Rfam assigns this 61-nucleotide RNA sequence from Cynara cardunculus to the family "Plastid-psbA-2 3UTR RNA". It scores 59 bits against the family's covariance model. Pairs were carried over by alignment from the consensus structure, which was predicted with LocARNA. Rfam's curators write: Plastid psbA-2 is a non-coding RNA (ncRNA) present in plastids. It was identified in inverted repeat sequences in the 3 prime untranslate region (3UTR) of photosystem II quinone-binding protein (psbA). The source organism's lineage runs through Eukaryota, Tracheophyta, asterids, Carduoideae and Cynara cardunculus subsp. cardunculus.

RNA sequence: AAAAGGGAGCAAUAAAUUCCCUCUUGUUUUAUCAAGAGGGCGUUAUUGCUUCUUUUUUUAU
Numbered sequence: 001a002a003a004a005g006g007g008a009g010c011a012a013u014a015a016a017u018u019c020c021c022u023c024u025u026g027u028u029u030u031a032u033c034a035a036g037a038g039g040g041c042g043u044u045a046u047u048g049c050u051u052c053u054u055u056u057u058u059u060a061u
Stems, first nucleotide, its partner, number of pairs: 001057015017040003022037005